[Rfam]
The family of this 78-nucleotide RNA from Aminobacter sp. MSH1 is "Fluoride riboswitch aptamer (crcB RNA motif)". A search with the family's covariance model found it, with a score of 51 bits. Pairs were carried over by alignment from the consensus structure, which is taken from published work.
RNA sequence: AAUCGAGCCGGCAAUGGAAUCUGCCUGACCCAUCUGGGUCGAACCGCCUCCCCGCAGGCUGAUGACUCCUACUCACUG
Numbered sequence: 001a002a003u004c005g006a007g008c009c010g011g012c013a014a015u016g017g018a019a020u021c022u023g024c025c026u027g028a029c030c031c032a033u034c035u036g037g038g039u040c041g042a043a044c045c046g047c048c049u050c051c052c053c054g055c056a057g058g059c060u061g062a063u064g065a066c067u068c069c070u071a072c073u074c075a076c077u078g
Base pairs, nucleotide, nucleotide: 010025011024012023013022016069017068018067020065021064046059047058048057049056